[Rfam]
Shown here is a 103-nucleotide RNA sequence from Papio anubis, a member of the family "Y RNA". Rfam classes the family as a non-coding RNA gene. Rfam describes the family as follows. Y RNAs are components of the Ro ribonucleoprotein particle (Ro RNP), in association with Ro60 and La proteins. The base pairs follow the family's consensus structure, which is taken from published work. The source organism's lineage runs through Eukaryota, Metazoa, Bilateria, Vertebrata and Papio.

RNA sequence: GGCUGGUAUGAGUAGAGUGGUGUUUACAAUUAGUUGAUCACAACCAGUUUUUAGACUUAUUCGUUCCUUCUUCACUCCCACUGCUGCACCUGACUAGCCUAAA
Numbered sequence: 001g002g003c004u005g006g007u008a009u010g011a012g013u014a015g016a017g018u019g020g021u022g023u024u025u026a027c028a029a030u031u032a033g034u035u036g037a038u039c040a041c042a043a044c045c046a047g048u049u050u051u052u053a054g055a056c057u058u059a060u061u062c063g064u065u066c067c068u069u070c071u072u073c074a075c076u077c078c079c080a081c082u083g084c085u086g087c088a089c090c091u092g093a094c095u096a097g098c099c100u101a102a103a
Base pairs, nucleotide, nucleotide: 001099002098003097004096005095006094007093010091016082017081018080019079020078022077028065029064030063032061033060